[Rfam]
A member of the RNA family "Small nucleolar RNA SNORD70" from Strongylocentrotus purpuratus, 93 nucleotides long. The literature on the family includes a 2001 paper in EMBO J by Huttenhofer et al., "RNomics: an experimental approach that identifies 201 candidates for novel, small, non-messenger RNAs in mouse". Rfam describes the family as follows. snoRNA HBII-234 belongs to the C/D family of snoRNAs. It is the human orthologue of the mouse MBII-234 and is predicted to guide 2'O-ribose methylation of the small 18S rRNA on position A512. The family has 21 seed sequences and 1,085 matches in Rfam 15.1. It is annotated as a C/D-box small nucleolar RNA.
RNA sequence: AUUGUUUCUGUUAAUGAUGUAUACAGAGUAAUGUAUGAAGAAGAAUGAUUAAGAUUAUAACUCAUUCGUCACUACCUCUGAGGCAGAAAUGAC
Numbered sequence: 001a002u003u004g005u006u007u008c009u010g011u012u013a014a015u016g017a018u019g020u021a022u023a024c025a026g027a028g029u030a031a032u033g034u035a036u037g038a039a040g041a042a043g044a045a046u047g048a049u050u051a052a053g054a055u056u057a058u059a060a061c062u063c064a065u066u067c068g069u070c071a072c073u074a075c076c077u078c079u080g081a082g083g084c085a086g087a088a089a090u091g092a093c
Stems, first nucleotide, its partner, number of pairs: 002092011